[Rfam]
RNA: sok antitoxin (CssrC)
RNA sequence: GGGUGCUCUUGGCUUGCUGCCAUGAGCAUUUCUCUAAGUAGUAUUUGCAAGUGGUAGAAAGUACAAAGCCCCGAAUGAACUAUAAAUUCAAACGAGGCCGUGUAUGUAUCUGACAGUACAAAUACUAGCCUCUUUGCCACAAGGAGGCAACGAAAAAUGCCAAAAAG
Numbered sequence: 001g002g003g004u005g006c007u008c009u010u011g012g013c014u015u016g017c018u019g020c021c022a023u024g025a026g027c028a029u030u031u032c033u034c035u036a037a038g039u040a041g042u043a044u045u046u047g048c049a050a051g052u053g054g055u056a057g058a059a060a061g062u063a064c065a066a067a068g069c070c071c072c073g074a075a076u077g078a079a080c081u082a083u084a085a086a087u088u089c090a091a092a093c094g095a096g097g098c099c100g101u102g103u104a105u106g107u108a109u110c111u112g113a114c115a116g117u118a119c120a121a122a123u124a125c126u127a128g129c130c131u132c133u134u135u136g137c138c139a140c141a142a143g144g145a146g147g148c149a150a151c152g153a154a155a156a157a158u159g160c161c162a163a164a165a166a167g
Stems, first nucleotide, its partner, number of pairs: 001072003005069003012062004017057007026048002073093001076090001077088002094132005100125004105120004